A member of the RNA family "Group II catalytic intron D1-D4-1" from Novibacillus thermophilus, 87 nucleotides long. From the family's description: Group II introns are found in rRNA, tRNA and mRNA of organelles in fungi, plants and protists, and also in mRNA in bacteria. The family has 237 seed sequences and 2,508 matches in Rfam 15.1. The match comes from Rfam's covariance-model search (63 bits).
RNA sequence: UAACCGCAGUCGAGAGGCUGCGCUGAAUCCGCAGGAGUCAGCAGAGGCCAUAGUACGCAAGUACGGGGCGCCGGAAAGCGGAAGGGC
Numbered sequence: 001u002a003a004c005c006g007c008a009g010u011c012g013a014g015a016g017g018c019u020g021c022g023c024u025g026a027a028u029c030c031g032c033a034g035g036a037g038u039c040a041g042c043a044g045a046g047g048c049c050a051u052a053g054u055a056c057g058c059a060a061g062u063a064c065g066g067g068g069c070g071c072c073g074g075a076a077a078g079c080g081g082a083a084g085g086g087c
Stems, first nucleotide, its partner, number of pairs: 001025002005022007038045002047087003056080003064074001